[Rfam]
RNA sequence: UUAGAGGAUUUAAAGACUUCAACUUGCAUAUUUUGAGGAUUUGAAGACCUUAACUUUCAAAUUUGAAGGAUUUGGAGACUUAUACU
Numbered sequence: 001u002u003a004g005a006g007g008a009u010u011u012a013a014a015g016a017c018u019u020c021a022a023c024u025u026g027c028a029u030a031u032u033u034u035g036a037g038g039a040u041u042u043g044a045a046g047a048c049c050u051u052a053a054c055u056u057u058c059a060a061a062u063u064u065g066a067a068g069g070a071u072u073u074g075g076a077g078a079c080u081u082a083u084a085c086u
Stems, first nucleotide, its partner, number of pairs: 001084001004081003009076006017068005025059002028056001032053002035050001037048001

Shown here is an 86-nucleotide RNA sequence from Solanum commersonii, a member of the family "MIR8024 microRNA precursor family". The match comes from Rfam's covariance-model search (78 bits). Taxonomically the source falls in Solanum (Eukaryota, Euphyllophyta, asterids, Solanales). Gene Ontology terms of the family: miRNA-mediated post-transcriptional gene silencing and RISC complex.